[Rfam]
The record is a 54-nucleotide sequence from Coregonus sp. 'balchen', which matches "UnaL2 LINE 3' element" in Rfam. The family's RNA type in Rfam is cis-regulatory element.

RNA sequence: GAAUCCAGGCUCUGUAAGUCGCUCUAGAUAAGAGCGUCUGCUAAAUGACGUAAA
Numbered sequence: 001g002a003a004u005c006c007a008g009g010c011u012c013u014g015u016a017a018g019u020c021g022c023u024c025u026a027g028a029u030a031a032g033a034g035c036g037u038c039u040g041c042u043a044a045a046u047g048a049c050g051u052a053a054a
Stems, first nucleotide, its partner, number of pairs: 013043001014041003020036006
The organism belongs to Coregonus, within Eukaryota.